[Rfam]
RNA sequence: CCGUUCUCGUGUUAUUUGUUGAAUUAUUUUUCGAGGUUCAAUGAUUGUCAAGAAGAACGCAAAUUGAAUUUCAAGUCAGUUAAACUCCACAAUGUUGAGCUUUUAACUCUAAACCUAUGACAUUACAAAAUGCUGGCUACAUUC
Numbered sequence: 001c002c003g004u005u006c007u008c009g010u011g012u013u014a015u016u017u018g019u020u021g022a023a024u025u026a027u028u029u030u031u032c033g034a035g036g037u038u039c040a041a042u043g044a045u046u047g048u049c050a051a052g053a054a055g056a057a058c059g060c061a062a063a064u065u066g067a068a069u070u071u072c073a074a075g076u077c078a079g080u081u082a083a084a085c086u087c088c089a090c091a092a093u094g095u096u097g098a099g100c101u102u103u104u105a106a107c108u109c110u111a112a113a114c115c116u117a118u119g120a121c122a123u124u125a126c127a128a129a130a131u132g133c134u135g136g137c138u139a140c141a142u143u144c
Stems, first nucleotide, its partner, number of pairs: 002059006010050002016044007091124005098116002101113001
RNA: Small nucleolar RNA psi18S-1377
Organism: Scaptodrosophila lebanonensis